A member of the RNA family "c-di-AMP riboswitch aptamer (ydaO/yuaA leader)" from Paenibacillus solanacearum, 196 nucleotides long. It scores 88 bits against the family's covariance model. From the family's description: This family represents a conserved RNA structure found upstream of the ydaO and yuaA genes in Bacillus subtilis and related genes in other bacteria. The organism belongs to Paenibacillus, within Bacteria.
RNA sequence: CCGAUUCCAACGCAGAAUUCCUUUACAGGAAACGGGGGACCCAAUCGAAACCUAUGCCUCAUCGACGGUUUCAAGGGGUGAAUCUCAAGUGCUGACAACUGACACCGUGAGACCGGUGUAACAGUUGCAACGUGAGUAGGGCGCUCUCAAGCCCGAACCCGACAGCUAACCUCGUAUGCGCAUUGAGAGAGAACCG
Number, nucleotide and partner (000 for none) at each position: 001c000002c000003g000004a000005u000006u000007c000008c000009a000010a000011c180012g179013c178014a177015g000016a000017a000018u031019u030020c029021c000022u000023u000024u000025a000026c000027a000028g000029g020030a019031a018032a175033c174034g173035g172036g171037g170038g000039a000040c000041c000042c075043a000044a000045u000046c000047g000048a000049a000050a000051c000052c000053u000054a000055u000056g000057c000058c000059u000060c000061a000062u000063c000064g000065a000066c000067g000068g000069u000070u000071u000072c000073a000074a000075g042076g160077g159078g158079u000080g000081a000082a000083u000084c136085u135086c134087a133088a000089g000090u000091g000092c000093u000094g000095a000096c000097a000098a000099c000100u000101g000102a000103c000104a000105c000106c000107g000108u000109g000110a000111g000112a000113c000114c000115g000116g000117u000118g000119u000120a000121a000122c000123a000124g000125u000126u000127g000128c000129a000130a000131c000132g000133u087134g086135a085136g084137u000138a000139g154140g153141g152142c151143g000144c000145u000146c000147u000148c000149a000150a000151g142152c141153c140154c139155g000156a000157a000158c078159c077160c076161g000162a000163c000164a000165g000166c000167u000168a000169a000170c037171c036172u035173c034174g033175u032176a000177u014178g013179c012180g011181c000182a000183u000184u000185g000186a000187g000188a000189g000190a000191g000192a000193a000194c000195c000196g000